Bacterial large subunit ribosomal RNA: a 363-nucleotide part of an RNA from Thermanaerovibrio acidaminovorans. The source organism's lineage runs through Bacteria, Thermotogati, Synergistota, Synergistia and Thermanaerovibrio acidaminovorans. Rfam links the family to the GO terms structural constituent of ribosome and ribosome. Pairs were carried over by alignment from the consensus structure, which is taken from published work. Rfam's curators put it in the seed alignment.
RNA sequence: CGGGAGAACCCUCGUUAAGGAACUCUGCAAGUUGACCCCGUAACUUCGGGAGAAGGGGUGCCCUGUGGCGUGAAUCUGGAAGCGGAGUAAGCGCUGUGGGGUCGCAGAAACCAGGCUCAGGCGACUGUUUAAUUAAAACACAGGACUCUGCUGAAGGCGCAAGCCGAGGUAUAGGGUCUGACACCUGCCCGGUGCUGGAAGGUUAAGGGGAGGGGUUAGCCGUCAGGCGAAGCUCUGAACCGAAGCCCCAGUAAACGGCGGCCGUAACUAUAACGGUCCUAAGGUAGCGAAAUUCCUUGUCGGGUAAGUUCCGACCUGCACGAAUGGUGUAACGAUCUGAGCGCUGUCUCGACGAGGGACCCG
Number, nucleotide and partner (000 for none) at each position: 001c363002g362003g361004g360005a000006g000007a000008a000009c358010c357011c356012u355013c354014g353015u352016u351017a000018a349019g348020g347021a000022a000023c000024u000025c000026u000027g000028c000029a000030a000031g000032u000033u000034g000035a059036c058037c057038c056039c055040g000041u000042a000043a000044c049045u000046u000047c000048g000049g044050g000051a000052g000053a000054a000055g039056g038057g037058g036059u035060g102061c101062c100063c099064u098065g097066u000067g000068g000069c000070g000071u000072g000073a088074a000075u086076c085077u084078g083079g000080a000081a000082g000083c078084g077085g076086a075087g000088u073089a000090a000091g000092c000093g000094c000095u000096g000097u065098g064099g063100g062101g061102u060103c107104g000105c000106a000107g103108a000109a000110a000111c000112c000113a000114g000115g342116c341117u340118c339119a338120g337121g336122c334123g333124a000125c000126u140127g139128u138129u000130u000131a000132a000133u000134u000135a000136a000137a000138a128139c127140a126141c000142a000143g179144g178145a177146c176147u175148c174149u173150g172151c169152u000153g000154a000155a000156g165157g164158c163159g000160c000161a000162a000163g158164c157165c156166g000167a000168g000169g151170u000171a000172u150173a149174g148175g147176g146177u145178c144179u143180g000181a000182c329183a328184c327185c326186u000187g259188c258189c257190c000191g000192g256193u255194g252195c251196u250197g249198g248199a000200a000201g247202g246203u245204u000205a000206a000207g241208g240209g000210g000211a000212g236213g235214g234215g233216u232217u000218a000219g228220c227221c000222g000223u000224c000225a000226g000227g220228c219229g000230a000231a000232g216233c215234u214235c213236u212237g000238a000239a000240c208241c207242g000243a000244a000245g203246c202247c201248c198249c197250a196251g195252u194253a000254a000255a193256c192257g189258g188259c187260g278261g277262c276263c275264g274265u273266a000267a000268c000269u000270a000271u000272a000273a265274c264275g263276g262277u261278c260279c283280u000281a000282a000283g279284g000285u000286a000287g000288c000289g316290a000291a000292a000293u000294u000295c000296c000297u000298u000299g315300u314301c313302g312303g311304g310305u000306a000307a000308g000309u000310u304311c303312c302313g301314a300315c299316c289317u000318g000319c000320a000321c000322g000323a000324a000325u000326g185327g184328u183329g182330u000331a000332a000333c123334g122335a000336u121337c120338u119339g118340a117341g116342c115343g000344c000345u000346g000347u020348c019349u018350c000351g016352a015353c014354g013355a012356g011357g010358g009359a000360c004361c003362c002363g001